[Rfam]
RNA: Small nucleolar RNA F1/F2/snoR5a
RNA sequence: ACUUGCCUGUGGUAUCUAAUGUCCAGAGUGUUUGUAUUGCUGGAUGUUUCGUUUUGAGGGCAUAAAUAUGAAGCAGAUCUUGCGACACAGCUAGCUUCUUUUCUAAAAGCUAUCUGUUACAUUUUACCUGCUUACAUUG
Numbered sequence: 001a002c003u004u005g006c007c008u009g010u011g012g013u014a015u016c017u018a019a020u021g022u023c024c025a026g027a028g029u030g031u032u033u034g035u036a037u038u039g040c041u042g043g044a045u046g047u048u049u050c051g052u053u054u055u056g057a058g059g060g061c062a063u064a065a066a067u068a069u070g071a072a073g074c075a076g077a078u079c080u081u082g083c084g085a086c087a088c089a090g091c092u093a094g095c096u097u098c099u100u101u102u103c104u105a106a107a108a109g110c111u112a113u114c115u116g117u118u119a120c121a122u123u124u125u126a127c128c129u130g131c132u133u134a135c136a137u138u139g
Stems, first nucleotide, its partner, number of pairs: 004062004008057001018048009028038001030037001072132005087117004093111004